Flavo-1 RNA: a 78-nucleotide sequence from Flavobacterium pygoscelis.
By type it is a small RNA.
Pairs were carried over by alignment from the consensus structure, which is taken from published work.
RNA sequence: UGUUAGCCCCGAUAGUAGCGGCAUCCUUUUACUUUUUUCUCAAAAAAGUAAAAGAUAUAGCGAAUAGCGGGAAAUAGC
Numbered sequence: 001u002g003u004u005a006g007c008c009c010c011g012a013u014a015g016u017a018g019c020g021g022c023a024u025c026c027u028u029u030u031a032c033u034u035u036u037u038u039c040u041c042a043a044a045a046a047a048g049u050a051a052a053a054g055a056u057a058u059a060g061c062g063a064a065u066a067g068c069g070g071g072a073a074a075u076a077g078c
Stems, first nucleotide, its partner, number of pairs: 009070003013066002018061002023056003029051008